[Rfam]
RNA sequence: GAAGUAUCGAUAACGCUGUUCAGGCGGAGUUAUCAAACCACCCAGUGCUGCAAAAGCUGCAAAGCUGCUGUGGUGAACGUUCUGGGAAAAGGCGGAACAACCGUCAGGU
Numbered sequence: 001g002a003a004g005u006a007u008c009g010a011u012a013a014c015g016c017u018g019u020u021c022a023g024g025c026g027g028a029g030u031u032a033u034c035a036a037a038c039c040a041c042c043c044a045g046u047g048c049u050g051c052a053a054a055a056g057c058u059g060c061a062a063a064g065c066u067g068c069u070g071u072g073g074u075g076a077a078c079g080u081u082c083u084g085g086g087a088a089a090a091g092g093c094g095g096a097a098c099a100a101c102c103g104u105c106a107g108g109u
Stems, first nucleotide, its partner, number of pairs: 009034006016027004039108001041086005047074002050071003055066003091105005
The family of this 109-nucleotide RNA from Halteria grandinella is "Group II catalytic intron D1-D4-2". Lineage of the source: Eukaryota > Alveolata > Intramacronucleata > Sporadotrichida > Halteria. For this family Rfam cites "Control of branch-site choice by a group II intron" (Chu et al., EMBO J, 2001). Rfam's curators write: Group II introns are found in rRNA, tRNA and mRNA of organelles in fungi, plants and protists, and also in mRNA in bacteria. The pairing is the family consensus, mapped onto this sequence.